Description:
The family of this 45-nucleotide sequence from Methanobrevibacter oralis is "eL15-Euryarchaeota ribosomal protein leader". For this family Rfam cites "Discovery of 20 novel ribosomal leader candidates in bacteria and archaea" (Eckert and Weinberg, BMC Microbiol, 2020). The sequence is in the family's curated seed alignment. The source organism's lineage runs through Archaea, Methanobacteriota, Methanobacteria, Methanobrevibacter and Methanobrevibacter oralis.
[Rfam]
RNA sequence: UGGGAUAUUUUCCCAUUGGAUGUGGCUUUAUAGCUGAACAAAAAA
Numbered sequence: 001u002g003g004g005a006u007a008u009u010u011u012c013c014c015a016u017u018g019g020a021u022g023u024g025g026c027u028u029u030a031u032a033g034c035u036g037a038a039c040a041a042a043a044a045a
Stems, first nucleotide, its partner, number of pairs: 001015005017041001019039001024035004